[Rfam]
RNA: Alphaproteobacterial ar14
RNA sequence: CGGAUAGGCCGGCGGUUCCUCCCACCGCCCGCCGCGAUGCCCUCGCUCUCCUCCUCCCAGGCGAGGGCUGAAACCAACGCCCACCGGUCCUCCCCCGGUGGGCGUUUUGG
Numbered sequence: 001c002g003g004a005u006a007g008g009c010c011g012g013c014g015g016u017u018c019c020u021c022c023c024a025c026c027g028c029c030c031g032c033c034g035c036g037a038u039g040c041c042c043u044c045g046c047u048c049u050c051c052u053c054c055u056c057c058c059a060g061g062c063g064a065g066g067g068c069u070g071a072a073a074c075c076a077a078c079g080c081c082c083a084c085c086g087g088u089c090c091u092c093c094c095c096c097g098g099u100g101g102g103c104g105u106u107u108u109g110g
Stems, first nucleotide, its partner, number of pairs: 001034003005031001007029003011025001039068009077105011